RNA sequence: CGACGGGCCACCCCUUCCCACCGAGGGGCGUCCAUCUGAGAGGAUGGCUAUC
Numbered sequence: 001c002g003a004c005g006g007g008c009c010a011c012c013c014c015u016u017c018c019c020a021c022c023g024a025g026g027g028g029c030g031u032c033c034a035u036c037u038g039a040g041a042g043g044a045u046g047g048c049u050a051u052c
Stems, first nucleotide, its partner, number of pairs: 011028006032047006
The family of this 52-nucleotide sequence from Starkeya sp. ORNL1 is "serC leader". Rfam describes the family as follows. This family is a putative regulatory RNA structure that is found upstream of the serC-serA operon in some alpha-proteobacteria. The final stem of the structure overlaps the ribosome binding site of the serC reading frame. The base pairs follow the family's consensus structure. Rfam classes the family as a cis-regulatory leader. For this family Rfam cites "Evidence for a second class of S-adenosylmethionine riboswitches and other regulatory RNA motifs in alpha-proteobacteria" (Corbino et al., Genome Biol, 2005).